RNA sequence: CGCCGCGGACGACCGCGGCGCGCCACCUUCAUGGCGGGACGGCCCGC
Numbered sequence: 001c002g003c004c005g006c007g008g009a010c011g012a013c014c015g016c017g018g019c020g021c022g023c024c025a026c027c028u029u030c031a032u033g034g035c036g037g038g039a040c041g042g043c044c045c046g047c
Stems, first nucleotide, its partner, number of pairs: 001020008034047005
RNA: Guanidine-II riboswitch aptamer (mini-ykkC)
Organism: Piscinibacter sp. HJYY11